Background:
The record is a 74-nucleotide RNA from Cnephaeus nilssonii, which matches "mir-9193 microRNA precursor family" in Rfam. Rfam 15.1 lists 6,008 matches to the family in 8 species. It scores 70 bits against the family's covariance model.
Nucleotides: 074
Stems, first nucleotide, its partner, number of pairs: 006069001009066002012063013028047001030045003034041001
Number, partner (000 for none) and nucleotide at each position: 001000c002000u003000c004000a005000g006069g007000g008000a009066g010065g011000g012063g013062g014061g015060g016059u017058c018057c019056c020055u021054c022053a023052g024051c025000c026000c027000a028047g029000a030045u031044u032043g033000c034041g035000a036000g037000a038000g039000g040000a041034c042000a043032u044031a045030g046000g047028c048000c049000a050000a051024g052023c053022u054021g055020a056019g057018g058017g059016a060015c061014c062013c063012c064000a065010c066009u067000g068000g069006u070000g071000c072000a073000g074000g